[Rfam]
Description:
The family of this 61-nucleotide RNA sequence from Theropithecus gelada is "U7 small nuclear RNA". Pairs were carried over by alignment from the consensus structure, which was predicted with PFOLD. A search with the family's covariance model found it, with a score of 49 bits. Rfam describes the family as follows. Animal histone pre-mRNAs are spliced by a different mechanism than nuclear pre-mRNAs and self-splicing introns. This processing involves the U7 snRNP, which contains only one RNA species: U7. The 5' end of U7 RNA is thought to base-pair to a conserved spacer element downstream of the cleavage site in histone pre-mRNA. This family contains a number of annotated U7 pseudogenes.
RNA sequence: AAAAGAAUACGGCUUUUUUAGAAUUUGUCUAGGAGGUUUUCUGGUUUUCACCAGAACCAAU
Numbered sequence: 001a002a003a004a005g006a007a008u009a010c011g012g013c014u015u016u017u018u019u020a021g022a023a024u025u026u027g028u029c030u031a032g033g034a035g036g037u038u039u040u041c042u043g044g045u046u047u048u049c050a051c052c053a054g055a056a057c058c059a060a061u
Base pairs, nucleotide, nucleotide: 035058036057039056040055041054042053043052044051045050
The family has 49 seed sequences and 10,439 matches in Rfam 15.1.